[Rfam]
Description:
A member of the RNA family "Makes More Granules Regulator RNA (mmgR)" from Rhizobium sp. Leaf306, 71 nucleotides long. The match comes from Rfam's covariance-model search (64 bits). SuhB later renamed mmgR (makes more granules regulator) was a putative non-coding RNA found multiple times in the Agrobacterium tumefaciens genome and related alpha-proteobacteria. Pairs were carried over by alignment from the consensus structure. Its family is annotated with protein binding, response to nitrogen compound and DNA-templated transcription, termination in the Gene Ontology. It is annotated as a small RNA. Rfam 15.1 lists 1,791 matches to the family in 918 species. The literature on the family includes a 2005 paper in Genome Biol by Corbino et al., "Evidence for a second class of S-adenosylmethionine riboswitches and other regulatory RNA motifs in alpha-proteobacteria".

RNA sequence: UGUAAAUACCCUCCUUGGGUGUUUCCUCCCUAGACUUAGCCGCGCUGUAAGCGCGGUUUUUUUUGUCCAAA
Numbered sequence: 001u002g003u004a005a006a007u008a009c010c011c012u013c014c015u016u017g018g019g020u021g022u023u024u025c026c027u028c029c030c031u032a033g034a035c036u037u038a039g040c041c042g043c044g045c046u047g048u049a050a051g052c053g054c055g056g057u058u059u060u061u062u063u064u065g066u067c068c069a070a071a
Stems, first nucleotide, its partner, number of pairs: 008020004040056007
Dot-bracket structure: .......((((.....))))...................(((((((...)))))))...............